Shown here is a 168-nucleotide sequence from Aneurinibacillus soli, a member of the family "Group II catalytic intron D1-D4-3". Rfam describes the family as follows. Group II introns are found in rRNA, tRNA and mRNA of organelles in fungi, plants and protists, and also in mRNA in bacteria. A reference for the family is Lehmann and Schmidt (2003), "Group II introns: structure and catalytic versatility of large natural ribozymes", Crit Rev Biochem Mol Biol.

[Rfam]
RNA sequence: GUCACCGUGAGCUGGGGUGCGGAGGGUCUGAAUGCAAAAUCCUGUACAAAGCAAAAGCGAACCUAAGUUGGCGUGAGGGCGGGAUAACCGUGCGAAAAAUCGGGAAGUCCAAAUGCCGAUAAUGUCCCAGAGCGUUAAGAGGGUUGGAAUAGGAUGGAAGUAUGGUAG
Numbered sequence: 001g002u003c004a005c006c007g008u009g010a011g012c013u014g015g016g017g018u019g020c021g022g023a024g025g026g027u028c029u030g031a032a033u034g035c036a037a038a039a040u041c042c043u044g045u046a047c048a049a050a051g052c053a054a055a056a057g058c059g060a061a062c063c064u065a066a067g068u069u070g071g072c073g074u075g076a077g078g079g080c081g082g083g084a085u086a087a088c089c090g091u092g093c094g095a096a097a098a099a100u101c102g103g104g105a106a107g108u109c110c111a112a113a114u115g116c117c118g119a120u121a122a123u124g125u126c127c128c129a130g131a132g133c134g135u136u137a138a139g140a141g142g143g144u145u146g147g148a149a150u151a152g153g154a155u156g157g158a159a160g161u162a163u164g165g166u167a168g
Stems, first nucleotide, its partner, number of pairs: 002015003006011001028168003034161002039155006045148001047146003062143003071135003078128002081125001082110004088103003